The family of this 61-nucleotide RNA sequence from Betacoronavirus erinacei is "Coronavirus 3' UTR pseudoknot".
Gene Ontology term of the family: viral genome replication.
The sequence is in the family's curated seed alignment.
On this family, see Williams et al., J Virol 1999: "A phylogenetically conserved hairpin-type 3' untranslated region pseudoknot functions in coronavirus RNA replication".
Rfam describes the family as follows. Coronaviruses are plus-strand RNA viruses with ~30kb genomes. The 3' UTR region of coronavirus genomes contains a conserved ~55nt pseudoknot structure which has been shown to be necessary for viral genome replication.
The organism belongs to Hedgehog coronavirus 1, within Viruses.
RNA sequence: CUACUCUUGCACAGAAUGGAAUCAUGUUGUAACUACAGUGCAAGAAGGUAGGUACAAUCCA
Numbered sequence: 001c002u003a004c005u006c007u008u009g010c011a012c013a014g015a016a017u018g019g020a021a022u023c024a025u026g027u028u029g030u031a032a033c034u035a036c037a038g039u040g041c042a043a044g045a046a047g048g049u050a051g052g053u054a055c056a057a058u059c060c061a
Stems, first nucleotide, its partner, number of pairs: 007043006028056004033051004